[Rfam]
RNA sequence: UGUCUGUGGUGAUGAUGAGGACAUCUGUCUUUAUCCUGAAAACUUGGUGUGGGUUUCUAGUCACUACCUCUUCUGAACAGUCA
Numbered sequence: 001u002g003u004c005u006g007u008g009g010u011g012a013u014g015a016u017g018a019g020g021a022c023a024u025c026u027g028u029c030u031u032u033a034u035c036c037u038g039a040a041a042a043c044u045u046g047g048u049g050u051g052g053g054u055u056u057c058u059a060g061u062c063a064c065u066a067c068c069u070c071u072u073c074u075g076a077a078c079a080g081u082c083a
Stems, first nucleotide, its partner, number of pairs: 002082001004080004
Small nucleolar RNA SNORD11B: an 83-nucleotide RNA from Nothobranchius furzeri. The literature on the family includes a 2006 paper in Nucleic Acids Res by Yang et al., "snoSeeker: an advanced computational package for screening of guide and orphan snoRNA genes in the human genome". It scores 63 bits against the family's covariance model. It is annotated as a C/D-box small nucleolar RNA. Its Rfam clan is "SNORD11 clan".